[Rfam]
RNA: Small nucleolar RNA snoR8a
Organism: Olea europaea
RNA sequence: UGGGUAGCGAUGAUUAUACUAAUUCUUUCUACUGAUUGUUGUUGCCACGUCGUGAGAAACCAUUUUACACCCACAGAACAUGAGCUUCC
Numbered sequence: 001u002g003g004g005u006a007g008c009g010a011u012g013a014u015u016a017u018a019c020u021a022a023u024u025c026u027u028u029c030u031a032c033u034g035a036u037u038g039u040u041g042u043u044g045c046c047a048c049g050u051c052g053u054g055a056g057a058a059a060c061c062a063u064u065u066u067a068c069a070c071c072c073a074c075a076g077a078a079c080a081u082g083a084g085c086u087u088c089c
Base pairs, nucleotide, nucleotide: 003089004088006086007085